[Rfam]
RNA sequence: GGAAGCUGGUUUCUGAUGGUGGCUUAGAGUGUUUCUCUAAAGAAUCUAGCACCAUUUGAAAUCAGUGUUCU
Number, nucleotide and partner (000 for none) at each position: 001g071002g070003a069004a068005g066006c065007u064008g063009g062010u061011u060012u059013c058014u000015g000016a055017u054018g053019g052020u051021g050022g000023c000024u000025u048026a047027g046028a045029g000030u000031g000032u000033u000034u000035c000036u000037c000038u000039a000040a000041a000042g000043a000044a000045u028046c027047u026048a025049g000050c021051a020052c019053c018054a017055u016056u000057u000058g013059a012060a011061a010062u009063c008064a007065g006066u005067g000068u004069u003070c002071u001
The record is a 71-nucleotide sequence from Astyanax mexicanus, which matches "mir-29 microRNA precursor family" in Rfam.
On this family, see Ambros, Cell 2001: "microRNAs: tiny regulators with great potential".
This family represents the microRNA (miRNA) precursors mir-29.
A search with the family's covariance model found it, with a score of 69 bits.
Rfam 15.1 lists 3,328 matches to the family in 787 species.